[Rfam]
RNA sequence: ACUCAAAUCAACUGUAAGUCGCUUUGGAUAAAAGCAUCUGCAAAAUAACUAAAA
Numbered sequence: 001a002c003u004c005a006a007a008u009c010a011a012c013u014g015u016a017a018g019u020c021g022c023u024u025u026g027g028a029u030a031a032a033a034g035c036a037u038c039u040g041c042a043a044a045a046u047a048a049c050u051a052a053a054a
Stems, first nucleotide, its partner, number of pairs: 013043001014041003021035005

A member of the RNA family "UnaL2 LINE 3' element" from Conger conger, 54 nucleotides long.
The literature on the family includes a 2004 paper in RNA by Baba et al., "Solution structure of an RNA stem-loop derived from the 3' conserved region of eel LINE UnaL2".
Taxonomically the source falls in Conger (Eukaryota, Neopterygii, Elopocephalai, Anguilliformes).
The family's consensus secondary structure is taken from published work.
It scores 57 bits against the family's covariance model.